[Rfam]
RNA: MIR5070 microRNA precursor family
Nucleotides: 116
Base pairs, nucleotide, nucleotide: 002115003114004113005112006111007110008109009108010107011106013104014103015102016101017100018099019098021096022095023094024093025092026091027090028089029088030087031086033084034083035082036081037080038079039078040077041076042075043074
Number, partner (000 for none) and nucleotide at each position: 001000u002115a003114g004113g005112g006111u007110a008109c009108c010107c011106u012000c013104u014103g015102a016101c017100c018099c019098u020000u021096c022095u023094u024093a025092g026091u027090u028089c029088a030087a031086c032000c033084a034083a035082a036081u037080g038079a039078a040077c041076u042075a043074a044000a045000u046000u047000u048000u049000c050000a051000a052000a053000a054000a055000u056000g057000a058000u059000g060000u061000g062000a063000a064000u065000u066000c067000u068000g069000a070000a071000a072000a073000u074043u075042u076041a077040g078039u079038u080037c081036a082035u083034u084033u085000a086031g087030u088029u089028g090027a091026a092025c093024u094023a095022a096021g097000u098019a099018g100017g101016g102015u103014u104013g105000a106011a107010g108009g109008g110007u111006a112005c113004c114003c115002u116000g